[Rfam]
RNA: transfer-messenger RNA
RNA sequence: GGGGAUGACUUGGCUUCGACAGGAGUAGAUUGCCCAUGGUUGCAUGUCGCUUUGGAUAUAGCGUAUAAAAUCCAAACUAAAUUUAAACGCAAAUAACGUUAAAUUCGCUCCUGCUUACGCUAAAGCUGCGUAGGUUCAGUUGAGCCUUGCAUUGUGCUGAUACUAUUUAGGCACAAAAGCGAGUAAUUUUAAAUAGUGUAGUUCAAAUGUCUGACAAACAUUUGUGCGAAUUUUUUGUCUUAGUUUAAAAGAAAGUUUUGGAAAGUGAGCUCUUUUAAAUGAAAAUUUCACUUUUGCUAAACAUGUAGAUGCCUUGAGUGUUUAUUUUUGGACUGCGGUUCGAUCCCGCACAUCUCCACCA
Numbered sequence: 001g002g003g004g005a006u007g008a009c010u011u012g013g014c015u016u017c018g019a020c021a022g023g024a025g026u027a028g029a030u031u032g033c034c035c036a037u038g039g040u041u042g043c044a045u046g047u048c049g050c051u052u053u054g055g056a057u058a059u060a061g062c063g064u065a066u067a068a069a070a071u072c073c074a075a076a077c078u079a080a081a082u083u084u085a086a087a088c089g090c091a092a093a094u095a096a097c098g099u100u101a102a103a104u105u106c107g108c109u110c111c112u113g114c115u116u117a118c119g120c121u122a123a124a125g126c127u128g129c130g131u132a133g134g135u136u137c138a139g140u141u142g143a144g145c146c147u148u149g150c151a152u153u154g155u156g157c158u159g160a161u162a163c164u165a166u167u168u169a170g171g172c173a174c175a176a177a178a179g180c181g182a183g184u185a186a187u188u189u190u191a192a193a194u195a196g197u198g199u200a201g202u203u204c205a206a207a208u209g210u211c212u213g214a215c216a217a218a219c220a221u222u223u224g225u226g227c228g229a230a231u232u233u234u235u236u237g238u239c240u241u242a243g244u245u246u247a248a249a250a251g252a253a254a255g256u257u258u259u260g261g262a263a264a265g266u267g268a269g270c271u272c273u274u275u276u277a278a279a280u281g282a283a284a285a286u287u288u289c290a291c292u293u294u295u296g297c298u299a300a301a302c303a304u305g306u307a308g309a310u311g312c313c314u315u316g317a318g319u320g321u322u323u324a325u326u327u328u329u330g331g332a333c334u335g336c337g338g339u340u341c342g343a344u345c346c347c348g349c350a351c352a353u354c355u356c357c358a359c360c361a
Base pairs, nucleotide, nucleotide: 001357002356003355004354005353006352007351020330021329022328023327024326025325026324027323028322029321031320032319033318035316036315038313039312040311043305044304045303046302047301048063049062050061051060052075053074054073055072056071057070113135114134115133116132117131118130119129120128146183147182148181149180150179152176153175154174155173156172157171158170164196167193168192201227202226204224205223206222207221208220209219213239214238215237216236243280244279245278246277247276248275249274250273251272252271255270256269257268260297262295263294265291266290267289334350335349336348337347338346